[Rfam]
RNA sequence: AAAUUAGAUAAAUGUAAGUCGCUCUGGAUAAGGGCAUCUGUUAAAUGCCAUAAA
Numbered sequence: 001a002a003a004u005u006a007g008a009u010a011a012a013u014g015u016a017a018g019u020c021g022c023u024c025u026g027g028a029u030a031a032g033g034g035c036a037u038c039u040g041u042u043a044a045a046u047g048c049c050a051u052a053a054a
Stems, first nucleotide, its partner, number of pairs: 013043001014041003021035005
Shown here is a 54-nucleotide RNA from Ameiurus melas, a member of the family "UnaL2 LINE 3' element". Gene Ontology term of the family: transposition, RNA-mediated.